The family of this 74-nucleotide sequence from Chelonia mydas is "Mammalian CPEB3 ribozyme". Rfam links the family to the GO term RNA nuclease activity. Lineage of the source: Eukaryota > Dipnotetrapodomorpha > Tetrapoda > Durocryptodira > Chelonia. The base pairs follow the family's consensus structure, which is taken from published work. A search with the family's covariance model found it, with a score of 44 bits.
[Rfam]
RNA sequence: UCAGAAUCCCAGAGACCACAGCAGGAGCCACCACAUGGAGGUCCUUGUCAGCCUUAAAGGUUGUGAAUCCUGCU
Numbered sequence: 001u002c003a004g005a006a007u008c009c010c011a012g013a014g015a016c017c018a019c020a021g022c023a024g025g026a027g028c029c030a031c032c033a034c035a036u037g038g039a040g041g042u043c044c045u046u047g048u049c050a051g052c053c054u055u056a057a058a059g060g061u062u063g064u065g066a067a068u069c070c071u072g073c074u
Base pairs, nucleotide, nucleotide: 014043015042016041017040020074021073022072023071024070025069026068028038029037049063050062051061052060053059054058